[Rfam]
RNA sequence: UCUCGACAAAGGCAAAGCUGAUGAAAGUCAGUGACGCAAAGCUACAGGGGCUAAGGUGUAAGUUUUUUACACUAAGCCAGCCAGUUACCGAA
Numbered sequence: 001u002c003u004c005g006a007c008a009a010a011g012g013c014a015a016a017g018c019u020g021a022u023g024a025a026a027g028u029c030a031g032u033g034a035c036g037c038a039a040a041g042c043u044a045c046a047g048g049g050g051c052u053a054a055g056g057u058g059u060a061a062g063u064u065u066u067u068u069a070c071a072c073u074a075a076g077c078c079a080g081c082c083a084g085u086u087a088c089c090g091a092a
Base pairs, nucleotide, nucleotide: 012037013036017032018031019030020029021028022027040086041085042084043083047082048081049078050077051076056072057071058070059069060068061067062066
A member of the RNA family "c-di-GMP-I riboswitch aptamer" from Salirhabdus euzebyi, 92 nucleotides long. The source organism's lineage runs through Bacteria, Bacillati, Bacillota, Bacilli and Salirhabdus. The match comes from Rfam's covariance-model search (79 bits).